[Rfam]
RNA sequence: GCGGUUCAUUAACCGCCCGUUAAGCCUUACAUGUGUUUACUGUGCGUAUCCAGUGAUCUGGAUUCUUACCGAGUGGCUGGAGCCAUUCUGUUUGACGCCUCCCUGUUUAACUCCUGAGAGCCGCAUCCGCGGCUCUUUUUUU
Dot-bracket structure: (((..(........).....(((((.........)))))...)))...((((......))))........((((((......)))))).....((((......))))........(((((((((....))))))))).....
Record summary: Shown here is a 142-nucleotide RNA from Chelativorans petroleitrophicus, a member of the family "Alphaproteobacterial sRNA BjrC1505". The family's RNA type in Rfam is small RNA. The source organism's lineage runs through Bacteria, Pseudomonadati, Hyphomicrobiales, Phyllobacteriaceae and Chelativorans. For this family Rfam cites "Small RNAs of the Bradyrhizobium/Rhodopseudomonas lineage and their analysis" (Madhugiri et al., RNA Biol, 2012). The match comes from Rfam's covariance-model search (65 bits).